[Rfam]
RNA sequence: GCUCCUAUAGUUGAACUACAACAAGAGCUUUUCACGCUCUAAGUUUGAGUUAAAAUCUCAAUAGAAGCU
Numbered sequence: 001g002c003u004c005c006u007a008u009a010g011u012u013g014a015a016c017u018a019c020a021a022c023a024a025g026a027g028c029u030u031u032u033c034a035c036g037c038u039c040u041a042a043g044u045u046u047g048a049g050u051u052a053a054a055a056u057c058u059c060a061a062u063a064g065a066a067g068c069u
Base pairs, nucleotide, nucleotide: 001068002067003066005064006063007062010022011021012020013019024040025039026038027037028036045061046060047059048058049057
Rfam assigns this 69-nucleotide sequence to the family "tRNA". The family's RNA type in Rfam is transfer RNA. The family's consensus secondary structure is taken from published work. Rfam links the family to the GO term triplet codon-amino acid adaptor activity.